[Rfam]
RNA: TPP riboswitch aptamer (THI element)
RNA sequence: GGGGGUUCCGAGGGGUGUUCUCGAGAGAGAACUGAGAUGGCGCAAUCCCGCGUCGAACCCUUCGAACCUGAUCCGGGUCAUGCCGGCGAAGGGACGGGACCUCAAAUGACC
Numbered sequence: 001g002g003g004g005g006u007u008c009c010g011a012g013g014g015g016u017g018u019u020c021u022c023g024a025g026a027g028a029g030a031a032c033u034g035a036g037a038u039g040g041c042g043c044a045a046u047c048c049c050g051c052g053u054c055g056a057a058c059c060c061u062u063c064g065a066a067c068c069u070g071a072u073c074c075g076g077g078u079c080a081u082g083c084c085g086g087c088g089a090a091g092g093g094a095c096g097g098g099a100c101c102u103c104a105a106a107u108g109a110c111c
Base pairs, nucleotide, nucleotide: 006099007098008097009096010095011061012060013059014058016055017032018031019030020029021028039054040053041052042051043050067092068091069090073086074085075084076083